[Rfam]
RNA sequence: AAUUGAAUAUGAGAAAGACCGUAGACAGUGGGUUGUGCGUACUGCACGUAAAUCCCACCGAGGUUUUUUUAAGAUAAAUUCCCUCUGGGGAUCCUCGUGUCUACGGGAUCCUUUUUAAAUUUUUAA
Numbered sequence: 001a002a003u004u005g006a007a008u009a010u011g012a013g014a015a016a017g018a019c020c021g022u023a024g025a026c027a028g029u030g031g032g033u034u035g036u037g038c039g040u041a042c043u044g045c046a047c048g049u050a051a052a053u054c055c056c057a058c059c060g061a062g063g064u065u066u067u068u069u070u071a072a073g074a075u076a077a078a079u080u081c082c083c084u085c086u087g088g089g090g091a092u093c094c095u096c097g098u099g100u101c102u103a104c105g106g107g108a109u110c111c112u113u114u115u116u117a118a119a120u121u122u123u124u125a126a
Base pairs, nucleotide, nucleotide: 028058029057030056031055032054035047036046037045089111090110091109092108093107094106096105097104098103
A member of the RNA family "Ribosomal protein L10 leader" from Caldanaerobacter subterraneus, 126 nucleotides long. The family's consensus secondary structure was predicted with CMfinder.